The family of this 376-nucleotide RNA sequence from Ramlibacter sp. is "Bacterial RNase P class A".

[Rfam]
Nucleotides: 376
Stems, first nucleotide, its partner, number of pairs: 001372010011361001012323007020075007080359001082357001084356005089196004096259004101192005106120005121135001122133004136187002141185002143181002157170002159166002200279004210270006251263004287306008
Number, partner (000 for none) and nucleotide at each position: 001372g002371a003370a004369g005368u006367c007366c008365a009364c010363c011361a012323g013322g014321c015320c016319g017318c018317c019000g020075c021074u022073g023072g024071c025070g026069c027000a028000a029000g030000c031000u032000g033000u034000c035000a036000a037000a038000a039000g040000c041000c042000g043000g044000c045000g046000u047000g048000a049000a050000a051000a052000c053000g054000c055000c056000g057000g058000g059000c060000c061000g062000a063000a064000a065000g066000g067000c068000c069026g070025c071024g072023c073022u074021g075020g076000a077000g078000g079000a080359a081000u082357g083000u084356c085355c086354g087353g088352a089196c090195u091194g092193c093000a094000u095000a096259g097258g098257g099256c100000a101192g102191c103190g104189u105188a106120g107119c108118g109117g110116g111000u112000a113000a114000c115000a116110c117109c118108c119107g120106u121135c122133c123132a124131c125130c126000g127000u128000g129000a130125g131124g132123u133122g134000a135121g136187g137186a138000u139000c140000a141185g142184a143181g144180c145000a146000a147000c148000a149000g150000a151000g152000a153000c154000g155000a156000g157170c158169c159166g160165c161000u162000u163000c164000a165160g166159u167000g168000c169158g170157g171000g172000u173000g174000a175000a176000a177000c178000g179000g180144g181143c182000a183000a184142u185141c186137u187136c188105u189104a190103c191102g192101c193092g194091c195090a196089g197000c198000a199000a200279u201278a202277c203276c204000a205000a206000g207000u208000a209000g210270g211269c212268a213267c214266a215265c216000a217000c218000g219000g220000a221000g222000u223000g224000c225000g226000g227000c228000g229000g230000c231000g232000a233000a234000a235000g236000c237000u238000g239000u240000u241000g242000u243000g244000u245000u246000c247000u248000a249000a250000c251263c252262c253261g254260g255000g256099g257098c258097c259096c260254c261253c262252g263251g264000a265215g266214u267213g268212u269211g270210c271000g272000g273000g274000u275000a276203g277202g278201u279200a280000g281000c282000a283000c284000c285000g286000a287306g288305c289304c290303g291302g292301u293300g294299a295000g296000u297000g298000a299294u300293c301292a302291c303290c304289g305288g306287c307000c308000c309000a310000g311000a312000u313000u314000a315000a316000u317018g318017g319016c320015g321014g322013u323012c324000a325000c326000g327000c328000u329000g330000g331000g332000g333000g334000c335000a336000a337000c338000c339000c340000c341000a342000g343000u344000g345000c346000a347000c348000a349000g350000a351000a352088u353087c354086c355085g356084g357082c358000u359080u360000a361011u362000c363010g364009g365008u366007g367006g368005a369004c370003u371002u372001c373000a374000c375000a376000c
Rfam classes the family as a ribozyme.
The family is grouped with related families in Rfam's "RNaseP clan".
The match comes from Rfam's covariance-model search (203 bits).